[Rfam]
RNA sequence: CCAAAAGAGCUAGUCAAUGCGAUUACUUCUAAAUUGAAAUAUCGGAAUACUAGCGUAGA
Numbered sequence: 001c002c003a004a005a006a007g008a009g010c011u012a013g014u015c016a017a018u019g020c021g022a023u024u025a026c027u028u029c030u031a032a033a034u035u036g037a038a039a040u041a042u043c044g045g046a047a048u049a050c051u052a053g054c055g056u057a058g059a
Stems, first nucleotide, its partner, number of pairs: 009054006020044004027038003
Shown here is a 59-nucleotide RNA sequence, a member of the family "Transposase-1 RNA". The base pairs follow the family's consensus structure, which is taken from published work. It is annotated as a small RNA.